[Rfam]
RNA sequence: UGACCCGCAGCGGGAGAAUCCUCCAAUCCGGAGGCGCCGUAGGAGCAACUUCCUCCCCGGGAAUCUCUCAGGCUCAAUACCGCUGCGUCGAG
Numbered sequence: 001u002g003a004c005c006c007g008c009a010g011c012g013g014g015a016g017a018a019u020c021c022u023c024c025a026a027u028c029c030g031g032a033g034g035c036g037c038c039g040u041a042g043g044a045g046c047a048a049c050u051u052c053c054u055c056c057c058c059g060g061g062a063a064u065c066u067c068u069c070a071g072g073c074u075c076a077a078u079a080c081c082g083c084u085g086c087g088u089c090g091a092g
Stems, first nucleotide, its partner, number of pairs: 006087008020034004036073003039069001043067003049060002
The family of this 92-nucleotide sequence from Mycolicibacterium wolinskyi is "Glycine riboswitch aptamer". Taxonomically the source falls in Mycobacterium (subgen. Mycolicibacterium) (Bacteria, Bacillati, Mycobacteriales, Mycobacteriaceae). The base pairs follow the family's consensus structure.